[Rfam]
RNA sequence: GAUGUGGUUAAUGAUGCAUCUUCUUUCCCUGUCUUAUCGACCAUGUUGAAAGCCAAGGUCUACAUUUAGCCAAAUGUCUGAAACCACAUC
Numbered sequence: 001g002a003u004g005u006g007g008u009u010a011a012u013g014a015u016g017c018a019u020c021u022u023c024u025u026u027c028c029c030u031g032u033c034u035u036a037u038c039g040a041c042c043a044u045g046u047u048g049a050a051a052g053c054c055a056a057g058g059u060c061u062a063c064a065u066u067u068a069g070c071c072a073a074a075u076g077u078c079u080g081a082a083a084c085c086a087c088a089u090c
Base pairs, nucleotide, nucleotide: 001090002089003088004087005086006085007084008083009082
The record is a 90-nucleotide RNA from Takifugu flavidus, which matches "Small nucleolar SNORD12/SNORD106" in Rfam. Lineage of the source: Eukaryota > Euteleosteomorpha > Percomorphaceae > Tetradontoidea > Takifugu. Rfam links the family to the GO terms nucleolus and RNA processing. The family's consensus secondary structure was predicted with RNAalifold. Clan: SNORD12 clan.